[Rfam]
RNA sequence: GGAGGUAGGCCCUCCGAUCAGGGCGUUCAGGCGCAUUGAUCAAACUACCUGAUGCUGCUGUUGACUAAGGUCUUCGGUAGUGAGCGACUCAGGAAAAGGCGGAAAUACUACCGUCAUGU
Numbered sequence: 001g002g003a004g005g006u007a008g009g010c011c012c013u014c015c016g017a018u019c020a021g022g023g024c025g026u027u028c029a030g031g032c033g034c035a036u037u038g039a040u041c042a043a044a045c046u047a048c049c050u051g052a053u054g055c056u057g058c059u060g061u062u063g064a065c066u067a068a069g070g071u072c073u074u075c076g077g078u079a080g081u082g083a084g085c086g087a088c089u090c091a092g093g094a095a096a097a098g099g100c101g102g103a104a105a106u107a108c109u110a111c112c113g114u115c116a117u118g119u
Stems, first nucleotide, its partner, number of pairs: 001015005016041006023034004046118001048093005053087001054081002057078003063072002098115005
A member of the RNA family "Group II catalytic intron D1-D4-2" from Marinomonas mediterranea, 119 nucleotides long. The pairing is the family consensus, mapped onto this sequence. NCBI's taxonomy places the organism under Bacteria, Pseudomonadati, Pseudomonadota, Gammaproteobacteria, Marinomonas mediterranea. A search with the family's covariance model found it, with a score of 90 bits. For this family Rfam cites "The ins and outs of group II introns" (Bonen and Vogel, Trends Genet, 2001). From the family's description: Group II introns are found in rRNA, tRNA and mRNA of organelles in fungi, plants and protists, and also in mRNA in bacteria.